[Rfam]
RNA sequence: UUGCCUGUUUUGGCACUAGCACAUUUUUGCUUUUUUAUAUAUACCUUGAGCAAUUAUGUGUAGUGCCAAUAUGGGACA
Numbered sequence: 001u002u003g004c005c006u007g008u009u010u011u012g013g014c015a016c017u018a019g020c021a022c023a024u025u026u027u028u029g030c031u032u033u034u035u036u037a038u039a040u041a042u043a044c045c046u047u048g049a050g051c052a053a054u055u056a057u058g059u060g061u062a063g064u065g066c067c068a069a070u071a072u073g074g075g076a077c078a
Stems, first nucleotide, its partner, number of pairs: 004075005010069008019061006027053006
RNA: mir-96 microRNA precursor family